[Rfam]
RNA sequence: AAACGAUAAAGGCAAACCUGAUCGAAAGACAGGGACGCAAAGCUAAAGGGCCUUACCCCGCAGGGGUUGGCAGCCAGCCACCGAA
Numbered sequence: 001a002a003a004c005g006a007u008a009a010a011g012g013c014a015a016a017c018c019u020g021a022u023c024g025a026a027a028g029a030c031a032g033g034g035a036c037g038c039a040a041a042g043c044u045a046a047a048g049g050g051c052c053u054u055a056c057c058c059c060g061c062a063g064g065g066g067u068u069g070g071c072a073g074c075c076a077g078c079c080a081c082c083g084a085a
Stems, first nucleotide, its partner, number of pairs: 012038002017033004022029002042078003048075002050071003057065003
Dot-bracket structure: ...........((...((((.((....))))))...))...(((...(((((....(((...)))...)))..))))).......
This 85-nucleotide sequence from Saccharibacillus brassicae belongs to the Rfam family "c-di-GMP-I riboswitch aptamer". Lineage of the source: Bacteria > Bacillota > Bacilli > Caryophanales > Saccharibacillus. The family's consensus secondary structure is taken from published work. Rfam links the family to the GO term cyclic-di-GMP binding.